[Rfam]
RNA sequence: GUAGGUUACGGCGACAUUCAGCCUCGCACAUGGAUGGGACAAAUCCUGGGUUGUUGUUGUGCUAUGUGUGGUGUGUUAGUCAUAGCUCUUCCUGUAUCUGUCCUUGGAACGAAC
Numbered sequence: 001g002u003a004g005g006u007u008a009c010g011g012c013g014a015c016a017u018u019c020a021g022c023c024u025c026g027c028a029c030a031u032g033g034a035u036g037g038g039a040c041a042a043a044u045c046c047u048g049g050g051u052u053g054u055u056g057u058u059g060u061g062c063u064a065u066g067u068g069u070g071g072u073g074u075g076u077u078a079g080u081c082a083u084a085g086c087u088c089u090u091c092c093u094g095u096a097u098c099u100g101u102c103c104u105u106g107g108a109a110c111g112a113a114c
Stems, first nucleotide, its partner, number of pairs: 001114002005110001007108001009106003013102004020095001037077002049063003
Record summary
The record is a 114-nucleotide RNA from Paramuricea clavata, which matches "Potassium channel RNA editing signal" in Rfam. It scores 52 bits against the family's covariance model. The family's RNA type in Rfam is cis-regulatory element.